[Rfam]
Nucleotides: 178
Stems, first nucleotide, its partner, number of pairs: 006173006016086008031071006038064001090120007098112001121147002124144008149163005
Number, partner (000 for none) and nucleotide at each position: 001000c002000g003000c004000a005000u006173g007172g008171a009170u010169a011168g012000a013000g014000g015000c016086g017085c018084g019083g020082a021081g022080c023079g024000c025000a026000a027000g028000g029000u030000a031071g032070c033069a034068g035067a036066g037000c038064a039000a040000u041000g042000a043000u044000a045000a046000g047000g048000g049000c050000a051000g052000g053000c054000g055000a056000g057000c058000c059000c060000g061000a062000u063000g064038u065000a066036c067035u068034c069033u070032g071031u072000g073000a074000a075000u076000g077000u078000c079023c080022g081021c082020u083019c084018c085017g086016c087000c088000g089000a090120a091119g092118g093117g094116g095115g096114a097000c098112g099000u100000g101000a102000a103000u104000c105000g106000u107000a108000c109000a110000g111000c112098c113000c114096u115095c116094c117093c118092c119091c120090u121147g122146a123000g124144c125143c126142g127141u128140g129139g130138g131137c132000c133000c134000a135000g136000u137131g138130c139129u140128u141127a142126c143125g144124g145000a146122u147121u148000g149163u150162c151161a152160u153159g154000a155000g156000u157000c158000a159153c160152a161151u162150g163149a164000a165000g166000c167000g168011c169010u170009a171008u172007u173006u174000g175000u176000g177000u178000c